RNA sequence: UAUUGGUCCUCCCGCAAUGAUAGAUUGUGAACCUGGUCAGGCCCGGAAGGGAGCAGCCACAGCAGUCAAAUCAUGUGCCGGGAUGUGGCUGGUAGGG
Numbered sequence: 001u002a003u004u005g006g007u008c009c010u011c012c013c014g015c016a017a018u019g020a021u022a023g024a025u026u027g028u029g030a031a032c033c034u035g036g037u038c039a040g041g042c043c044c045g046g047a048a049g050g051g052a053g054c055a056g057c058c059a060c061a062g063c064a065g066u067c068a069a070a071u072c073a074u075g076u077g078c079c080g081g082g083a084u085g086u087g088g089c090u091g092g093u094a095g096g097g
Stems, first nucleotide, its partner, number of pairs: 004091005010083005015075001017074005023067006034059004042051003
RNA: Bacterial small signal recognition particle RNA
Organism: Marinobacterium sp. LSUCC0821